SAM riboswitch aptamer (S box leader): a 107-nucleotide sequence from Paraliobacillus sp. PM-2. Rfam links the family to the GO term regulation of gene expression.
RNA sequence: CUCUUAUCAAGAGUGGCAGAGGGAAUAGGCCCAACGAAGCCCGGCAACCAUCAAUUUUUAUUGAAAAGGUGCCAAAUCCUACAGGUGUUAUACCUGAUAGAUAAGAG
Dot-bracket structure: ((((((((....(.(((...(((..[[[[)))......))))((((.((.(((........)))...))))))...(]]]]((((((...))))))..)))))))))